Annotation:
This 82-nucleotide sequence from Paractinoplanes rishiriensis belongs to the Rfam family "ZMP/ZTP riboswitch aptamer (pfl RNA motif)".
RNA sequence: GAUGCCGAACGCGACUGGCGGCACAGGGAUGGGUCAACCAUCGGGGAGCCUGUCACGGGAGUCGACCGCCUGGGCCCCGUGC
Numbered sequence: 001g002a003u004g005c006c007g008a009a010c011g012c013g014a015c016u017g018g019c020g021g022c023a024c025a026g027g028g029a030u031g032g033g034u035c036a037a038c039c040a041u042c043g044g045g046g047a048g049c050c051u052g053u054c055a056c057g058g059g060a061g062u063c064g065a066c067c068g069c070c071u072g073g074g075c076c077c078c079g080u081g082c
Base pairs, nucleotide, nucleotide: 003055004054006052009051011049012048015045016044017070018069019068020067021066029041030040031039032038059077061075062074063073
The organism belongs to Paractinoplanes, within Bacteria.
For this family Rfam cites "Recognition of the bacterial alarmone ZMP through long-distance association of two RNA subdomains" (Jones and Ferre-D'Amare, Nat Struct Mol Biol, 2015).